SAM riboswitch aptamer (S box leader): a 105-nucleotide RNA sequence from Lederbergia citrea. It scores 97 bits against the family's covariance model. The family's consensus secondary structure is taken from published work.
[Rfam]
RNA sequence: UCCUUAUCAAGAGAAGCUAAGGGACUGGCCCGAUGAAGCUUCAGCAACCUCUGCAUUGCAGAAAGGUGCUAAAUCCAGCAAGAAUUAUUUCUUGGAAGAUAAGAG
Numbered sequence: 001u002c003c004u005u006a007u008c009a010a011g012a013g014a015a016g017c018u019a020a021g022g023g024a025c026u027g028g029c030c031c032g033a034u035g036a037a038g039c040u041u042c043a044g045c046a047a048c049c050u051c052u053g054c055a056u057u058g059c060a061g062a063a064a065g066g067u068g069c070u071a072a073a074u075c076c077a078g079c080a081a082g083a084a085u086u087a088u089u090u091c092u093u094g095g096a097a098g099a100u101a102a103g104a105g
Stems, first nucleotide, its partner, number of pairs: 001105001003103006013042005021031003025078004043070004048066002050062004074097001079094006